The record is a 383-nucleotide part of an RNA from Ferrimicrobium acidiphilum, which matches "Bacterial large subunit ribosomal RNA" in Rfam. Lineage of the source: Bacteria > Actinomycetota > Acidimicrobiaceae > Ferrimicrobium > Ferrimicrobium acidiphilum. Rfam links the family to the GO terms structural constituent of ribosome and ribosome.
[Rfam]
RNA sequence: GAGAGAGGGGUGAGAAACCCCUCCGCCGAAAGCCUAAGGGUUCCUGGGCAAGGCUAAUCCGCCCAGGGUAAGUCGGGAGCUAAGGCGAGGCCGAGAGGCGUAGUCGAUGCACAACCGGUUCAUAUUCCGGUACCGCUAAUACCACGUUUGAGUGAUGGAGGGACGCAGGAGGGUAGAUGAUCCCAGGCGUUGGUUGUCCUGGGGAAAGCGUGUAGGGCGAGGGCCAGGUAAAUCCGGACCUCAUAUAAGCCUGAGACGUGAUUCCGAACCGCUUUUAGGUGAAGUCAUUAAUCCCAUGCUGCCGAGAAAAGCUUCUAGCGAGUGGUAAGAGCGCCCGUACCCCAAACCGACACAGGUAGGCAGGUAGAGAAUACCAAGGCGAU
Numbered sequence: 001g002a003g004a005g006a007g008g009g010g011u012g013a014g015a016a017a018c019c020c021c022u023c024c025g026c027c028g029a030a031a032g033c034c035u036a037a038g039g040g041u042u043c044c045u046g047g048g049c050a051a052g053g054c055u056a057a058u059c060c061g062c063c064c065a066g067g068g069u070a071a072g073u074c075g076g077g078a079g080c081u082a083a084g085g086c087g088a089g090g091c092c093g094a095g096a097g098g099c100g101u102a103g104u105c106g107a108u109g110c111a112c113a114a115c116c117g118g119u120u121c122a123u124a125u126u127c128c129g130g131u132a133c134c135g136c137u138a139a140u141a142c143c144a145c146g147u148u149u150g151a152g153u154g155a156u157g158g159a160g161g162g163a164c165g166c167a168g169g170a171g172g173g174u175a176g177a178u179g180a181u182c183c184c185a186g187g188c189g190u191u192g193g194u195u196g197u198c199c200u201g202g203g204g205a206a207a208g209c210g211u212g213u214a215g216g217g218c219g220a221g222g223g224c225c226a227g228g229u230a231a232a233u234c235c236g237g238a239c240c241u242c243a244u245a246u247a248a249g250c251c252u253g254a255g256a257c258g259u260g261a262u263u264c265c266g267a268a269c270c271g272c273u274u275u276u277a278g279g280u281g282a283a284g285u286c287a288u289u290a291a292u293c294c295c296a297u298g299c300u301g302c303c304g305a306g307a308a309a310a311g312c313u314u315c316u317a318g319c320g321a322g323u324g325g326u327a328a329g330a331g332c333g334c335c336c337g338u339a340c341c342c343c344a345a346a347c348c349g350a351c352a353c354a355g356g357u358a359g360g361c362a363g364g365u366a367g368a369g370a371a372u373a374c375c376a377a378g379g380c381g382a383u
Stems, first nucleotide, its partner, number of pairs: 005023006024381004032361004038341002043067006052060002074337004079110002084105003088101001090099003114131005134333004140327005152319002157315004165302004171295003176289005182203006204264002208259004215252003219242004224237002227235002268280003347356002363375004